Record summary: The record is a 145-nucleotide sequence from Alligator sinensis, which matches "Small nucleolar RNA SNORD94" in Rfam. By type it is a C/D-box small nucleolar RNA. The base pairs follow the family's consensus structure, which was predicted with RNAalifold. For this family Rfam cites "Identification of 13 novel human modification guide RNAs" (Vitali et al., Nucleic Acids Res, 2003). The organism belongs to Alligator, within Eukaryota.
Nucleotides: 145
Base pairs, nucleotide, nucleotide: 001145002144003143004142005141
Number, partner (000 for none) and nucleotide at each position: 001145a002144u003143g004142g005141c006000u007000g008000u009000g010000a011000u012000g013000a014000u015000u016000g017000g018000c019000g020000c021000a022000g023000g024000g025000g026000u027000a028000c029000g030000g031000a032000c033000c034000u035000c036000a037000g038000c039000u040000a041000g042000a043000u044000c045000a046000u047000g048000g049000g050000a051000g052000c053000u054000g055000a056000a057000u058000g059000u060000g061000a062000a063000c064000u065000c066000c067000g068000g069000u070000c071000u072000u073000u074000u075000c076000a077000g078000u079000g080000u081000g082000g083000c084000u085000g086000a087000c088000g089000u090000g091000u092000g093000g094000u095000u096000g097000g098000c099000u100000g101000c102000c103000u104000g105000g106000a107000a108000a109000c110000a111000a112000g113000u114000u115000c116000a117000c118000a119000u120000g121000a122000g123000a124000a125000u126000u127000c128000u129000g130000c131000c132000u133000g134000a135000c136000a137000c138000u139000g140000a141005g142004c143003c144002a145001u